[Rfam]
RNA sequence: GGAUGCUCUGAAGACCUGCUCUCUAGGCUACGUACGGAGGACGUGCCGUUCCUCGUGGGCCUCAGGCCCGCCUAGGGGAAAGUCCCCGGACGGCGGGCAGAGAGUGCCGCGCGCCACCGGCGCGCGCGCCCGCUCCGCGCCUCACGCAGCGCCGCCAAGACGCCCGCCGGGGCCGAGCGGGUGAGCGGGAGGCGGGCCCUCGUCACGGCCACAGGCACGCAGGUAGUGCGCAGGCGCGCCGGGCGCGGGCCGCCGCACCAACACAACGGGGCUCACUCUCAGGCCAUC
Numbered sequence: 001g002g003a004u005g006c007u008c009u010g011a012a013g014a015c016c017u018g019c020u021c022u023c024u025a026g027g028c029u030a031c032g033u034a035c036g037g038a039g040g041a042c043g044u045g046c047c048g049u050u051c052c053u054c055g056u057g058g059g060c061c062u063c064a065g066g067c068c069c070g071c072c073u074a075g076g077g078g079a080a081a082g083u084c085c086c087c088g089g090a091c092g093g094c095g096g097g098c099a100g101a102g103a104g105u106g107c108c109g110c111g112c113g114c115c116a117c118c119g120g121c122g123c124g125c126g127c128g129c130c131c132g133c134u135c136c137g138c139g140c141c142u143c144a145c146g147c148a149g150c151g152c153c154g155c156c157a158a159g160a161c162g163c164c165c166g167c168c169g170g171g172g173c174c175g176a177g178c179g180g181g182u183g184a185g186c187g188g189g190a191g192g193c194g195g196g197c198c199c200u201c202g203u204c205a206c207g208g209c210c211a212c213a214g215g216c217a218c219g220c221a222g223g224u225a226g227u228g229c230g231c232a233g234g235c236g237c238g239c240c241g242g243g244c245g246c247g248g249g250c251c252g253c254c255g256c257a258c259c260a261a262c263a264c265a266a267c268g269g270g271g272c273u274c275a276c277u278c279u280c281a282g283g284c285c286a287u288c
Stems, first nucleotide, its partner, number of pairs: 002288004007283005014224006022076007037054005081273002084271004096108004109127006129196003135192002138189001140187001141185004152180004162173004226258005
The record is a 288-nucleotide sequence from Dromaius novaehollandiae, which matches "RNase MRP" in Rfam. It scores 126 bits against the family's covariance model. Rfam's curators write: RNase MRP is an enzymatically active ribonucleoprotein with two distinct roles in eukaryotes. In mitochondria it plays a direct role in the initiation of mitochondrial DNA replication. In the nucleus it is involved in precursor rRNA processing, where it cleaves the internal transcribed spacer 1 between 18S and 5.8S rRNAs. Despite distinct functions, RNase MRP has been shown to be evolutionarily related to RNase P. Like eukaryotic RNase P, RNase MRP is not catalytically active without associated protein subunits. Taxonomically the source falls in Dromaius (Eukaryota, Opisthokonta, Bilateria, Sauropsida). The base pairs follow the family's consensus structure, which is taken from published work.